Source information:
Shown here is an 85-nucleotide sequence from Panagrolaimus sp. PS1159, a member of the family "mir-46/mir-47/mir-281 microRNA precursor family". The family's consensus secondary structure was predicted with RNAalifold. A search with the family's covariance model found it, with a score of 75 bits.
[Rfam]
RNA sequence: AUCAUUGUACUGUUAAGAGAGCCAUCUGUUGACAGUUUGAAGAUAUAAUUACUGUCAUGGAGUUGCUCUCUUAACAUUUACAUUG
Numbered sequence: 001a002u003c004a005u006u007g008u009a010c011u012g013u014u015a016a017g018a019g020a021g022c023c024a025u026c027u028g029u030u031g032a033c034a035g036u037u038u039g040a041a042g043a044u045a046u047a048a049u050u051a052c053u054g055u056c057a058u059g060g061a062g063u064u065g066c067u068c069u070c071u072u073a074a075c076a077u078u079u080a081c082a083u084u085g
Base pairs, nucleotide, nucleotide: 014073015072016071017070018069020067021066022065025061026060027059028058031056032055033054035052036051